Shown here is a 559-nucleotide part of an RNA from Thermanaeromonas sp. C210, a member of the family "Bacterial small subunit ribosomal RNA".
NCBI's taxonomy places the organism under Bacteria, Bacillota, Clostridia, Neomoorellales, Thermanaeromonas.
It scores 1594 bits against the family's covariance model.
For this family Rfam cites "Crystal structure of the ribosome at 5.5 A resolution" (Yusupov et al., Science, 2001).
RNA sequence: UUUAUGGAGGGUUUGAUCCUGGCUCAGGACGAACGCUGGCGGCGUGCCUAACACAUGCAAGUCGAGCGGGCCAUACUGGUAAGCUUGCUUACUGGUAUGGUUUAGCGGCGGACGGGUGAGUAACGCGUAGGCAACCUACCCAUGAGACUGGGAUAACCCUGGGAAACUGGGGCUAAUACCGGAUACGCUCCUCUUGGGGCAUCCUGGGGGGAGGAAAGGGGGCGAGAGCCUACCGCUCAUGGAUGGGCCUGCGUCCCAUUAGCUAGUUGGUGGGGUAACGGCCCACCAAGGCGACGAUGGGUAGCCGGCCUGAGAGGGUGGUCGGCCACACUGGGACUGAGACACGGCCCAGACUCCUACGGGAGGCAGCAGUGGGGGAUCUUGCGCAAUGGGCGGAAGCCUGACGCAGCGACGCCGCGUGGGGGAUGAAGGCCUUUGGGUUGUAAACCCCUGUCCUAGGGGACGAAGGAAGUGACGGUACCCUAGGAGGAAGCCCCGGCUAACUACGUGCCAGCAGCCGCGGUAAGACGUAGGGGGCGAGCGUUGUCCGGAAUUACUG
Numbered sequence: 001u002u003u004a005u006g007g008a009g010g011g012u013u014u015g016a017u018c019c020u021g022g023c024u025c026a027g028g029a030c031g032a033a034c035g036c037u038g039g040c041g042g043c044g045u046g047c048c049u050a051a052c053a054c055a056u057g058c059a060a061g062u063c064g065a066g067c068g069g070g071c072c073a074u075a076c077u078g079g080u081a082a083g084c085u086u087g088c089u090u091a092c093u094g095g096u097a098u099g100g101u102u103u104a105g106c107g108g109c110g111g112a113c114g115g116g117u118g119a120g121u122a123a124c125g126c127g128u129a130g131g132c133a134a135c136c137u138a139c140c141c142a143u144g145a146g147a148c149u150g151g152g153a154u155a156a157c158c159c160u161g162g163g164a165a166a167c168u169g170g171g172g173c174u175a176a177u178a179c180c181g182g183a184u185a186c187g188c189u190c191c192u193c194u195u196g197g198g199g200c201a202u203c204c205u206g207g208g209g210g211g212a213g214g215a216a217a218g219g220g221g222g223c224g225a226g227a228g229c230c231u232a233c234c235g236c237u238c239a240u241g242g243a244u245g246g247g248c249c250u251g252c253g254u255c256c257c258a259u260u261a262g263c264u265a266g267u268u269g270g271u272g273g274g275g276u277a278a279c280g281g282c283c284c285a286c287c288a289a290g291g292c293g294a295c296g297a298u299g300g301g302u303a304g305c306c307g308g309c310c311u312g313a314g315a316g317g318g319u320g321g322u323c324g325g326c327c328a329c330a331c332u333g334g335g336a337c338u339g340a341g342a343c344a345c346g347g348c349c350c351a352g353a354c355u356c357c358u359a360c361g362g363g364a365g366g367c368a369g370c371a372g373u374g375g376g377g378g379a380u381c382u383u384g385c386g387c388a389a390u391g392g393g394c395g396g397a398a399g400c401c402u403g404a405c406g407c408a409g410c411g412a413c414g415c416c417g418c419g420u421g422g423g424g425g426a427u428g429a430a431g432g433c434c435u436u437u438g439g440g441u442u443g444u445a446a447a448c449c450c451c452u453g454u455c456c457u458a459g460g461g462g463a464c465g466a467a468g469g470a471a472g473u474g475a476c477g478g479u480a481c482c483c484u485a486g487g488a489g490g491a492a493g494c495c496c497c498g499g500c501u502a503a504c505u506a507c508g509u510g511c512c513a514g515c516a517g518c519c520g521c522g523g524u525a526a527g528a529c530g531u532a533g534g535g536g537g538c539g540a541g542c543g544u545u546g547u548c549c550g551g552a553a554u555u556a557c558u559g
Stems, first nucleotide, its partner, number of pairs: 009025005027549004032545006039418006045411002047376001052374003056371003061109003066106002069102002077094007116329003125254008135246002140242007148182004157172006188213007196205003218234002255301003262292003267289008304326004308319004331352005354365004382408001384407003390403005421451004431442004455490001456486006465476001493538005504533005514521002